[Rfam]
RNA: Guanidine-I riboswitch aptamer
RNA sequence: ACAUAAGGUCUCUAGGGUUCCGCCAGUACAAAACAGUGACUGGGACUGGUCCAAGAGAGGCCACACCUCCGUAUAUGGGGGUGACACGGAGGGAUAAAAGCCCGGGAGAU
Numbered sequence: 001a002c003a004u005a006a007g008g009u010c011u012c013u014a015g016g017g018u019u020c021c022g023c024c025a026g027u028a029c030a031a032a033a034c035a036g037u038g039a040c041u042g043g044g045a046c047u048g049g050u051c052c053a054a055g056a057g058a059g060g061c062c063a064c065a066c067c068u069c070c071g072u073a074u075a076u077g078g079g080g081g082u083g084a085c086a087c088g089g090a091g092g093g094a095u096a097a098a099a100g101c102c103c104g105g106g107a108g109a110u
Base pairs, nucleotide, nucleotide: 007062008061009060010059011058012057015052016051020049021048022046023043024042025041026040027039064083065082066081067080068079069078070077085105087108091103092102093101